[Rfam]
RNA sequence: GGGGGACCCCCUGGAGAGAGGGACAGCAUGUCCCCGCCGAAGAGAUAAAGGGGCUCAGGUAAGUAAAACGGGGGGGGGCUA
Number, nucleotide and partner (000 for none) at each position: 001g000002g000003g000004g000005g000006a000007c075008c074009c073010c072011c071012u070013g069014g000015a000016g000017a000018g000019a000020g034021g033022g032023a031024c000025a000026g000027c000028a000029u000030g000031u023032c022033c021034c020035c000036g060037c059038c058039g056040a055041a000042g000043a000044g000045a000046u000047a000048a000049a000050g000051g000052g000053g000054c000055u040056c039057a000058g038059g037060u036061a000062a000063g000064u000065a000066a000067a000068a000069c013070g012071g011072g010073g009074g008075g007076g000077g000078g000079c000080u000081a000